[Rfam]
RNA sequence: UGAUGGUGUCACACACAAUGCUGGGAGACGUCAUCACGUGCUACCUCCGGUGAUGUCAGCACCCAGCACCAUGAUGUCC
Numbered sequence: 001u002g003a004u005g006g007u008g009u010c011a012c013a014c015a016c017a018a019u020g021c022u023g024g025g026a027g028a029c030g031u032c033a034u035c036a037c038g039u040g041c042u043a044c045c046u047c048c049g050g051u052g053a054u055g056u057c058a059g060c061a062c063c064c065a066g067c068a069c070c071a072u073g074a075u076g077u078c079c
Stems, first nucleotide, its partner, number of pairs: 005079002010076002019068007027060001030057001032055006
mir-1419 microRNA precursor family: a 79-nucleotide RNA from Ornithorhynchus anatinus.
Taxonomically the source falls in Ornithorhynchus (Eukaryota, Opisthokonta, Bilateria, Gnathostomata).
A reference for the family is Murchison et al. (2008), "Conservation of small RNA pathways in platypus", Genome Res.
It is one of the family's seed sequences.